Small nucleolar RNA SNORA58: a 140-nucleotide sequence from Erinaceus europaeus. Gene Ontology terms of the family: RNA processing and nucleolus. Its Rfam clan is "SNORA44 clan". ACA52 is a member of the H/ACA class of snoRNA that guide the sites of modification of uridines to pseudouridines. The family has 20 seed sequences and 471 matches in Rfam 15.1.

RNA sequence: UGGCAUAUCCACUUAAGACCUUACCUGACUUUACUCGUGGCCAGGCAAGUGGGACAGUGUAUGCAAGAAUAAUUGGGAGUUUAUGCCAGAUUCACCCAGCUUCAUCAGUGGCUGGAUAAAUAAACAGUACUCCAACAUUG
Number, nucleotide and partner (000 for none) at each position: 001u000002g000003g064004c063005a062006u061007a060008u059009c000010c000011a000012c000013u000014u000015a000016a000017g000018a000019c000020c049021u048022u047023a000024c045025c044026u043027g042028a000029c000030u000031u000032u000033a000034c000035u000036c000037g000038u000039g000040g000041c000042c027043a026044g025045g024046c000047a022048a021049g020050u000051g000052g000053g000054a000055c000056a000057g000058u000059g008060u007061a006062u005063g004064c003065a000066a000067g000068a000069a000070u000071a000072a000073u000074u000075g000076g133077g132078a131079g130080u000081u129082u000083a000084u126085g125086c000087c000088a000089g000090a000091u000092u000093c000094a000095c000096c115097c114098a113099g112100c111101u000102u000103c000104a000105u000106c000107a000108g000109u000110g000111g100112c099113u098114g097115g096116a000117u000118a000119a000120a000121u000122a000123a000124a000125c085126a084127g000128u000129a081130c079131u078132c077133c076134a000135a000136c000137a000138u000139u000140g000
It scores 114 bits against the family's covariance model.